[Rfam]
Shown here is a 110-nucleotide sequence from Brassica rapa, a member of the family "Small nucleolar RNA snoR100". It scores 92 bits against the family's covariance model. Taxonomically the source falls in Brassica (Eukaryota, Streptophyta, Tracheophyta, rosids).
RNA sequence: UAAUGAAUGUAGCAUGGUACUGUACACGGAAACUGAAUCAUGGUGUUUGAAAUGUCUGUGCCCUCUCUGAAAACUUCUUUGAUUUGCGGGCCUGGUUUAAACCAACAUUC
Numbered sequence: 001u002a003a004u005g006a007a008u009g010u011a012g013c014a015u016g017g018u019a020c021u022g023u024a025c026a027c028g029g030a031a032a033c034u035g036a037a038u039c040a041u042g043g044u045g046u047u048u049g050a051a052a053u054g055u056c057u058g059u060g061c062c063c064u065c066u067c068u069g070a071a072a073a074c075u076u077c078u079u080u081g082a083u084u085u086g087c088g089g090g091c092c093u094g095g096u097u098u099a100a101a102c103c104a105a106c107a108u109u110c
Stems, first nucleotide, its partner, number of pairs: 012025001014023002045092001047090002054083003058077001060075001

The family has 9 seed sequences and 1,851 matches in Rfam 15.1.